A member of the RNA family "TPP riboswitch aptamer (THI element)" from Nocardioides gansuensis, 110 nucleotides long. It scores 65 bits against the family's covariance model. The base pairs follow the family's consensus structure, which is taken from published work.
[Rfam]
RNA sequence: GUCAACAGACAGGGGAGCACGUGCACACGUGCUGAGAGUGCGGGACAGCCGCAGACCCUCCGAACCUGAUCCGGUUAGCACCGGCGAUAGGGAGUCGCACAUGACCACGC
Number, nucleotide and partner (000 for none) at each position: 001g000002u000003c000004a000005a000006c000007a000008g096009a095010c094011a059012g058013g057014g056015g000016a000017g032018c031019a030020c029021g028022u000023g000024c000025a000026c000027a000028c021029g020030u019031g018032c017033u000034g000035a000036g000037a000038g000039u053040g052041c051042g050043g049044g000045a000046c000047a000048g000049c043050c042051g041052c040053a039054g000055a000056c014057c013058c012059u011060c000061c000062g000063a000064a000065c091066c090067u089068g088069a000070u000071c084072c083073g082074g081075u000076u000077a000078g000079c000080a000081c074082c073083g072084g071085c000086g000087a000088u068089a067090g066091g065092g000093a000094g010095u009096c008097g000098c000099a000100c000101a000102u000103g000104a000105c000106c000107a000108c000109g000110c000